[Rfam]
RNA sequence: AUGCACAGUGAACACCCAGGGGUGCUAAUGUGGUUCCCCCUGGUCUUUUUGCAUCUGUGCUACAGUAACUCUGAUCUGUACCUCUGCAUUAGAAGAGCCCAUUCCUCUACUACAUGUAUUCAACGGAUCAGAAUAAUU
Numbered sequence: 001a002u003g004c005a006c007a008g009u010g011a012a013c014a015c016c017c018a019g020g021g022g023u024g025c026u027a028a029u030g031u032g033g034u035u036c037c038c039c040c041u042g043g044u045c046u047u048u049u050u051g052c053a054u055c056u057g058u059g060c061u062a063c064a065g066u067a068a069c070u071c072u073g074a075u076c077u078g079u080a081c082c083u084c085u086g087c088a089u090u091a092g093a094a095g096a097g098c099c100c101a102u103u104c105c106u107c108u109a110c111u112a113c114a115u116g117u118a119u120u121c122a123a124c125g126g127a128u129c130a131g132a133a134u135a136a137u138u
Base pairs, nucleotide, nucleotide: 003060004059005058006057007056008055010054013051014050016043017042018041019040020039022036024034025033026032062077064075066073067072085122086121087116088115089114091111092110094108095107096106097105